[Rfam]
This 59-nucleotide sequence from Thauera linaloolentis belongs to the Rfam family "Selenocysteine insertion sequence 3". On this family, see Huttenhofer et al., RNA 1996: "Solution structure of mRNA hairpins promoting selenocysteine incorporation in Escherichia coli and their base-specific interaction with special elongation factor SELB". Pairs were carried over by alignment from the consensus structure, which was predicted with CMfinder. Lineage of the source: Bacteria > Pseudomonadati > Betaproteobacteria > Zoogloeaceae > Thauera linaloolentis. Rfam links the family to the GO term selenocysteine incorporation.
RNA sequence: AUCUGACACGCUCCCACGGUAGCCAGUCUGGCUCCGACGUUCGGGCGUGGCUCGAUGAC
Numbered sequence: 001a002u003c004u005g006a007c008a009c010g011c012u013c014c015c016a017c018g019g020u021a022g023c024c025a026g027u028c029u030g031g032c033u034c035c036g037a038c039g040u041u042c043g044g045g046c047g048u049g050g051c052u053c054g055a056u057g058a059c
Stems, first nucleotide, its partner, number of pairs: 007049007016041001018035002021033005